Rfam assigns this 145-nucleotide RNA from Halarcobacter anaerophilus to the family "FMN riboswitch aptamer (RFN element)".
The source organism's lineage runs through Bacteria, Pseudomonadati, Campylobacterota, Campylobacterales and Halarcobacter.
RNA sequence: UUUAUUUCUUGGGGCAAGGUGAAAUUCCUUACUGGUGGUAACUAUAUCAAUAGAAGUCCACGAGCGCUUUAUAUUAUAUAAAGGUCAAGCAGAUUUGGUGAGAAUCCAAAACCAACAGUUAAAGUCUGGAUGAAAAAGAAUAUAA
Numbered sequence: 001u002u003u004a005u006u007u008c009u010u011g012g013g014g015c016a017a018g019g020u021g022a023a024a025u026u027c028c029u030u031a032c033u034g035g036u037g038g039u040a041a042c043u044a045u046a047u048c049a050a051u052a053g054a055a056g057u058c059c060a061c062g063a064g065c066g067c068u069u070u071a072u073a074u075u076a077u078a079u080a081a082a083g084g085u086c087a088a089g090c091a092g093a094u095u096u097g098g099u100g101a102g103a104a105u106c107c108a109a110a111a112c113c114a115a116c117a118g119u120u121a122a123a124g125u126c127u128g129g130a131u132g133a134a135a136a137a138g139a140a141u142a143u144a145a
Stems, first nucleotide, its partner, number of pairs: 006140005017029003031125002033114002035061004056112002064090002094110005116128003